[Rfam]
RNA sequence: GCAUGGCCGAAUUCUGUUUUACUCUUGAAAUAGUAAAUGCAGUCAGACACCAUGCUAAAUUAUUAUUUUCACACACUGACUCAACAGGAUAAGAGUGCUAAUUAUGUGCCUUAAUCAUAUGUCAGAGUGAAUACAGAA
Numbered sequence: 001g002c003a004u005g006g007c008c009g010a011a012u013u014c015u016g017u018u019u020u021a022c023u024c025u026u027g028a029a030a031u032a033g034u035a036a037a038u039g040c041a042g043u044c045a046g047a048c049a050c051c052a053u054g055c056u057a058a059a060u061u062a063u064u065a066u067u068u069u070c071a072c073a074c075a076c077u078g079a080c081u082c083a084a085c086a087g088g089a090u091a092a093g094a095g096u097g098c099u100a101a102u103u104a105u106g107u108g109c110c111u112u113a114a115u116c117a118u119a120u121g122u123c124a125g126a127g128u129g130a131a132u133a134c135a136g137a138a
Base pairs, nucleotide, nucleotide: 001055002054003053004052005051006050014042015041016040017039019037068131069130070129074127076125077124078123079122080121084120086118088116089115090114092112093111095109096108097107098106
RNA: Small nucleolar RNA SNORA15
Organism: Sander lucioperca